[Rfam]
Shown here is an 89-nucleotide sequence from Sesamum indicum, a member of the family "Small nucleolar RNA snoR53Y". Rfam 15.1 lists 513 matches to the family in 230 species. Rfam classes the family as a C/D-box small nucleolar RNA.
RNA sequence: UUCCCCUGUGAUGGUUGUUACGGUAAACCAUGCUAAUUCUGAUGAUUUCAUGAUCGAUAUCAGAAUCUCAGUAAUUCUCUGAUGGGGCA
Number, nucleotide and partner (000 for none) at each position: 001u000002u087003c086004c085005c084006c000007u000008g000009u000010g000011a000012u000013g000014g000015u000016u000017g000018u000019u000020a000021c000022g000023g000024u000025a000026a000027a000028c000029c000030a000031u000032g000033c000034u000035a000036a000037u000038u000039c000040u000041g000042a000043u000044g000045a000046u000047u000048u000049c000050a000051u000052g000053a000054u000055c000056g000057a000058u000059a000060u000061c000062a000063g000064a000065a000066u000067c000068u000069c000070a000071g000072u000073a000074a000075u000076u000077c000078u000079c000080u000081g000082a000083u000084g005085g004086g003087g002088c000089a000

About this RNA:
The literature on the family includes a 2001 paper in RNA by Brown et al., "Multiple snoRNA gene clusters from Arabidopsis". The match comes from Rfam's covariance-model search (50 bits).